The family of this 112-nucleotide sequence from Corymbia citriodora is "mir-399 microRNA precursor family". The family's consensus secondary structure was predicted with PFOLD. About the family: mir-399 was identified in both Arabidopsis thaliana and Oryza sativa computationally and was later experimentally verified. mir-399 is thought to target mRNAs coding for a phosphatase transporter. The mature sequence is excised from the 3' arm of the hairpin. Rfam links the family to the GO terms RISC complex and miRNA-mediated post-transcriptional gene silencing. On this family, see Jones-Rhoades and Bartel, Mol Cell 2004: "Computational Identification of Plant MicroRNAs and Their Targets, Including a Stress-Induced miRNA".
RNA sequence: AAUCGAAUGGCAGGGCAAUUCUCCUUUGGCAAAAGCAAGAACAACCCUAACAUUUGCAUGCAUGCCAAUGCACUUCUCUUUUGCCAAAGGAGAAUUACGCUGUUAUUCACUA
Numbered sequence: 001a002a003u004c005g006a007a008u009g010g011c012a013g014g015g016c017a018a019u020u021c022u023c024c025u026u027u028g029g030c031a032a033a034a035g036c037a038a039g040a041a042c043a044a045c046c047c048u049a050a051c052a053u054u055u056g057c058a059u060g061c062a063u064g065c066c067a068a069u070g071c072a073c074u075u076c077u078c079u080u081u082u083g084c085c086a087a088a089g090g091a092g093a094a095u096u097a098c099g100c101u102g103u104u105a106u107u108c109a110c111u112a
Stems, first nucleotide, its partner, number of pairs: 005108005011102003015098001017096003021092004027086009